[Rfam]
RNA sequence: CGCCGGGGCCAAUUGGGGUUCCCGAAGGACCAAUUGGGGUCAGAGGA
Numbered sequence: 001c002g003c004c005g006g007g008g009c010c011a012a013u014u015g016g017g018g019u020u021c022c023c024g025a026a027g028g029a030c031c032a033a034u035u036g037g038g039g040u041c042a043g044a045g046g047a
Base pairs, nucleotide, nucleotide: 004024005023006022007020008019009018010017028041029040030039031038

The family of this 47-nucleotide RNA sequence is "gut-2 RNA". The base pairs follow the family's consensus structure, which is taken from published work. The sequence is in the family's curated seed alignment.